[Rfam]
RNA sequence: AUUGAGAGACAGGGGCGUUCGUCGCGAGGCGGACUGAGAAGUACCCUUUGAACCUGAACCAGAUAAUGCUGGCGGAGGGAGUCGCUUGGGGUCUUCG
Numbered sequence: 001a002u003u004g005a006g007a008g009a010c011a012g013g014g015g016c017g018u019u020c021g022u023c024g025c026g027a028g029g030c031g032g033a034c035u036g037a038g039a040a041g042u043a044c045c046c047u048u049u050g051a052a053c054c055u056g057a058a059c060c061a062g063a064u065a066a067u068g069c070u071g072g073c074g075g076a077g078g079g080a081g082u083c084g085c086u087u088g089g090g091g092u093c094u095u096c097g
Stems, first nucleotide, its partner, number of pairs: 006085001008083003011047004016041001017034005053078003059072004
A member of the RNA family "TPP riboswitch aptamer (THI element)" from Rhizobium sp. RU36D, 97 nucleotides long. The source organism's lineage runs through Bacteria, Pseudomonadota, Hyphomicrobiales, Rhizobiaceae and Rhizobium. The match comes from Rfam's covariance-model search (67 bits). Pairs were carried over by alignment from the consensus structure, which is taken from published work.